[Rfam]
RNA sequence: AUACUUACCUGGCAAGGGAGAUCCAGAAGGUGGCUCUCCCAGGGUGAGGCUUGGCCAUUGCACUCAGGCUGUGCUGACCCCUGCAGUUUCCCACAUGUGGGAAUCUCGACUGCAUUAUUUCUGGUAGUGGGGGACUGCGUUCACACUUUUCCCUG
Number, nucleotide and partner (000 for none) at each position: 001a000002u000003a000004c000005u000006u000007a000008c000009c000010u000011g000012g113013c112014a111015a000016g040017g039018g038019a037020g036021a035022u000023c000024c000025a000026g000027a000028a000029g000030g000031u000032g000033g000034c000035u021036c020037u019038c018039c017040c016041a082042g081043g080044g079045u000046g078047a000048g075049g074050c073051u000052u071053g070054g069055c068056c067057a000058u000059u000060g000061c000062a000063c000064u000065c000066a000067g056068g055069c054070u053071g052072u000073g050074c049075u048076g000077a000078c046079c044080c043081c042082u041083g000084c108085a000086g106087u000088u103089u102090c100091c099092c000093a000094c000095a000096u000097g000098u000099g091100g090101g000102a089103a088104u000105c000106u086107c000108g084109a000110c000111u014112g013113c012114a000115u000116u000117a000118u000119u000120u000121c000122u000123g000124g000125u000126a000127g000128u000129g154130g153131g152132g151133g150134a149135c000136u000137g146138c000139g144140u000141u000142c000143a000144c139145a000146c137147u000148u000149u134150u133151c132152c131153c130154u129155g000
The record is a 155-nucleotide RNA from Microcaecilia unicolor, which matches "U1 spliceosomal RNA" in Rfam. Taxonomically the source falls in Microcaecilia (Eukaryota, Metazoa, Euteleostomi, Sarcopterygii). The family has 100 seed sequences and 40,184 matches in Rfam 15.1. Pairs were carried over by alignment from the consensus structure, which is taken from published work. The family's RNA type in Rfam is spliceosomal small nuclear RNA.